Background
ASpks TB sRNA: a 69-nucleotide RNA sequence from Streptomyces malaysiensis. It scores 78 bits against the family's covariance model. On this family, see Arnvig and Young, Mol Microbiol 2009: "Identification of small RNAs in Mycobacterium tuberculosis". The source organism's lineage runs through Bacteria, Bacillati, Actinomycetota, Actinomycetes and Streptomyces.
RNA sequence: CUUGACCGAGCCCAGCAGCAGCGGCUGCGCACGGUCCUGGCCGUAGGUGGCCAGCAGCGCCUGCGCCUC
Numbered sequence: 001c002u003u004g005a006c007c008g009a010g011c012c013c014a015g016c017a018g019c020a021g022c023g024g025c026u027g028c029g030c031a032c033g034g035u036c037c038u039g040g041c042c043g044u045a046g047g048u049g050g051c052c053a054g055c056a057g058c059g060c061c062u063g064c065g066c067c068u069c
Base pairs, nucleotide, nucleotide: 014026015025016024028065029064030063032059033058037054038053039052041050042049043048